[Rfam]
RNA sequence: GUAAAACGACCUACAAUCGCAGGUUAUUUACUAUUUCUUGCAUCACCUCACGCUCAGAGUCGCCAAACUUUGAGAGCGUGAGGUUUUUU
Numbered sequence: 001g002u003a004a005a006a007c008g009a010c011c012u013a014c015a016a017u018c019g020c021a022g023g024u025u026a027u028u029u030a031c032u033a034u035u036u037c038u039u040g041c042a043u044c045a046c047c048u049c050a051c052g053c054u055c056a057g058a059g060u061c062g063c064c065a066a067a068c069u070u071u072g073a074g075a076g077c078g079u080g081a082g083g084u085u086u087u088u089u
Stems, first nucleotide, its partner, number of pairs: 005028002008025005045084011056071005
RNA: S. pyogenes small RNA 779816